[Rfam]
Description: The record is a 38-nucleotide RNA sequence from Enterococcus florum, which matches "Selenocysteine insertion sequence 4" in Rfam.
RNA sequence: GGAACCUGUACUCGUUGCGGUGCAACGAUGACCCGAGA
Numbered sequence: 001g002g003a004a005c006c007u008g009u010a011c012u013c014g015u016u017g018c019g020g021u022g023c024a025a026c027g028a029u030g031a032c033c034c035g036a037g038a
Stems, first nucleotide, its partner, number of pairs: 006030001013027006

It is annotated as a cis-regulatory element. The family's consensus secondary structure was predicted with PFOLD.